[Rfam]
RNA: mir-548 microRNA precursor family
RNA sequence: UAUUAGGUUGGUGCAAAAGUAAUUGUGCUUUUUGCUAUUGAAAGCAAAGGCAGAAACCACAAUUACUUUUGCACCAACCUAAUA
Numbered sequence: 001u002a003u004u005a006g007g008u009u010g011g012u013g014c015a016a017a018a019g020u021a022a023u024u025g026u027g028c029u030u031u032u033u034g035c036u037a038u039u040g041a042a043a044g045c046a047a048a049g050g051c052a053g054a055a056a057c058c059a060c061a062a063u064u065a066c067u068u069u070u071g072c073a074c075c076a077a078c079c080u081a082a083u084a
Base pairs, nucleotide, nucleotide: 001084002083003082004081005080006079007078008077009076010075011074012073013072014071015070016069017068018067019066020065021064022063023062024061025060026059027058029056030055031054032053033052034051035050036049038047039046040045
Dot-bracket structure: (((((((((((((((((((((((((((.((((((((.(((....))).)))))))).)))))))))))))))))))))))))))